[Rfam]
RNA sequence: AUCCCUUGCCAUAUCGGGAUAUAGACAUGGCGCCUCCCUGUUGGACUGCCCGGACCUUUUAUGGUCCGGGCUUUUUU
Dot-bracket structure: .......(((((.(..........).)))))................((((((((........))))))))......

Background
A member of the RNA family "Singlet oxygen resistance RNA X" from Litoreibacter roseus, 77 nucleotides long. A search with the family's covariance model found it, with a score of 57 bits. The base pairs follow the family's consensus structure. Rfam classes the family as a small RNA.